[Rfam]
RNA: sul1 RNA
Organism: Aureimonas sp. Leaf324
RNA sequence: AAUGGACCCGGCGCGCCGGGUGGCUAUGCCGGGCGCCUAUCCCUCGGCCAAUC
Numbered sequence: 001a002a003u004g005g006a007c008c009c010g011g012c013g014c015g016c017c018g019g020g021u022g023g024c025u026a027u028g029c030c031g032g033g034c035g036c037c038u039a040u041c042c043c044u045c046g047g048c049c050a051a052u053c
Stems, first nucleotide, its partner, number of pairs: 006021006028048006